A member of the RNA family "Small nucleolar RNA Z118/Z121/Z120" from Hordeum vulgare, 109 nucleotides long.
The source organism's lineage runs through Eukaryota, Liliopsida, Triticeae, Hordeinae and Hordeum vulgare.

RNA sequence: UGUUUGCUGUGAUGAAUCACAAAGACGGUAUCUGAGUCAGGCUAGCUCUUGAAAAAGGCCUCCUUCCUUGAUUACACAUCCCAAACUGAUCAUAUAUUCUGAGCGAACA
Numbered sequence: 001u002g003u004u005u006g007c008u009g010u011g012a013u014g015a016a017u018c019a020c021a022a023a024g025a026c027g028g029u030a031u032c033u034g035a036g037u038c039a040g041g042c043u044a045g046c047u048c049u050u051g052a053a054a055a056a057g058g059c060c061u062c063c064u065u066c067c068u069u070g071a072u073u074a075c076a077c078a079u080c081c082c083a084a085a086c087u088g089a090u091c092a093u094a095u096a097u098u099c100u101g102a103g104c105g106a107a108c109a
Stems, first nucleotide, its partner, number of pairs: 001109007036067001039064003